Flavo-1 RNA: a 143-nucleotide RNA sequence from Siansivirga zeaxanthinifaciens. Rfam 15.1 lists 7,497 matches to the family in 411 species.

[Rfam]
RNA sequence: AGCUACUCCUGGUUGAAGUGGCAUCCUUUCUGCGAAGCCUUGAUAACAUAGAAUAACUUAUUAAAAACCAAUAAAUUUGAUACGAUGCCAAAACAAGUUCGGGACUGCUUAGCAGAAAGAUAUAACGGAAAACAGGAAGAAAC
Numbered sequence: 001a002g003c004u005a006c007u008c009c010u011g012g013u014u015g016a017a018g019u020g021g022c023a024u025c026c027u028u029u030c031u032g033c034g035a036a037g038c039c040u041u042g043a044u045a046a047c048a049u050a051g052a053a054u055a056a057c058u059u060a061u062u063a064a065a066a067a068c069c070a071a072u073a074a075a076u077u078u079g080a081u082a083c084g085a086u087g088c089c090a091a092a093a094c095a096a097g098u099u100c101g102g103g104a105c106u107g108c109u110u111a112g113c114a115g116a117a118a119g120a121u122a123u124a125a126c127g128g129a130a131a132a133c134a135g136g137a138a139g140a141a142a143c
Base pairs, nucleotide, nucleotide: 009135010134011133013131014130018126019125023121024120025119029116030115031114032113033112035110036109037108038107